[Rfam]
RNA sequence: GCUUUGGGGCAGGGGUUUCUUUCGGCCUCCAGCCGCAUUGGAAAGUUGUAGGCCGGCGGAAACUACUUGCCUCAGACC
Numbered sequence: 001g002c003u004u005u006g007g008g009g010c011a012g013g014g015g016u017u018u019c020u021u022u023c024g025g026c027c028u029c030c031a032g033c034c035g036c037a038u039u040g041g042a043a044a045g046u047u048g049u050a051g052g053c054c055g056g057c058g059g060a061a062a063c064u065a066c067u068u069g070c071c072u073c074a075g076a077c078c
Stems, first nucleotide, its partner, number of pairs: 005074004010069004014064007022056007030048003

Description: Rfam assigns this 78-nucleotide RNA sequence from Cimex lectularius to the family "mir-2796 microRNA precursor family". NCBI's taxonomy places the organism under Eukaryota, Allotriocarida, Eumetabola, Euheteroptera, Cimex.